RNA: mir-1302 microRNA precursor family
RNA sequence: UUUUUAGUUUAAGUAAGUACCAUGAAAUAUUUGGGACAUACUUGUGCUAAAA
Numbered sequence: 001u002u003u004u005u006a007g008u009u010u011a012a013g014u015a016a017g018u019a020c021c022a023u024g025a026a027a028u029a030u031u032u033g034g035g036a037c038a039u040a041c042u043u044g045u046g047c048u049a050a051a052a
Stems, first nucleotide, its partner, number of pairs: 006048003010044003014040002018036001020034002022031001
Dot-bracket structure: .....(((.(((.((..(.(((........).)).)..)).))).)))....